[Rfam]
Rfam assigns this 312-nucleotide RNA from Fusarium fujikuroi to the family "Fungal signal recognition particle RNA". The base pairs follow the family's consensus structure, which is taken from published work. Gene Ontology terms of the family: signal recognition particle, endoplasmic reticulum targeting, SRP-dependent cotranslational protein targeting to membrane, signal sequence recognition and signal recognition particle, plasma membrane targeting. The organism belongs to Fusarium fujikuroi, within Eukaryota. By type it is a non-coding RNA gene.
RNA sequence: GACUGUAAUGGUCUAACGGUGAAGGCGUUCAAACCCGCUCAACCGCCCAUCCCAAUACUGUGGUGCUUCGGUACCUCAGCCCUCCGCCGCGCCCCGCCCGAACGUUGCGGUGGUCGCCCACUCGUGCAGGUAACUCACGAUGCUGGAACUUUGCGGCCCUAAGCACUGGAGAUGACCCUUGAGGGAGGUUUCACUCUGCAGAGAUCUCUCCCCCGUCGCGUGGCGGGUGGGAACACGUUAGUGCGGGGGGAUUUGGGAUGGCAAGUGGAUGAGAUGGAGCAGCCAACUGUCUUUUUUUUUUUUUUUUUUGUU
Numbered sequence: 001g002a003c004u005g006u007a008a009u010g011g012u013c014u015a016a017c018g019g020u021g022a023a024g025g026c027g028u029u030c031a032a033a034c035c036c037g038c039u040c041a042a043c044c045g046c047c048c049a050u051c052c053c054a055a056u057a058c059u060g061u062g063g064u065g066c067u068u069c070g071g072u073a074c075c076u077c078a079g080c081c082c083u084c085c086g087c088c089g090c091g092c093c094c095c096g097c098c099c100g101a102a103c104g105u106u107g108c109g110g111u112g113g114u115c116g117c118c119c120a121c122u123c124g125u126g127c128a129g130g131u132a133a134c135u136c137a138c139g140a141u142g143c144u145g146g147a148a149c150u151u152u153g154c155g156g157c158c159c160u161a162a163g164c165a166c167u168g169g170a171g172a173u174g175a176c177c178c179u180u181g182a183g184g185g186a187g188g189u190u191u192c193a194c195u196c197u198g199c200a201g202a203g204a205u206c207u208c209u210c211c212c213c214c215g216u217c218g219c220g221u222g223g224c225g226g227g228u229g230g231g232a233a234c235a236c237g238u239u240a241g242u243g244c245g246g247g248g249g250g251a252u253u254u255g256g257g258a259u260g261g262c263a264a265g266u267g268g269a270u271g272a273g274a275u276g277g278a279g280c281a282g283c284c285a286a287c288u289g290u291c292u293u294u295u296u297u298u299u300u301u302u303u304u305u306u307u308u309u310g311u312u
Stems, first nucleotide, its partner, number of pairs: 001013003017310003021306004031297002035277003039272003047261009060077001062075005081247003085243003089238003093231008102221004107216004117146002119142002122140005128135002159163001168211005178203003185196003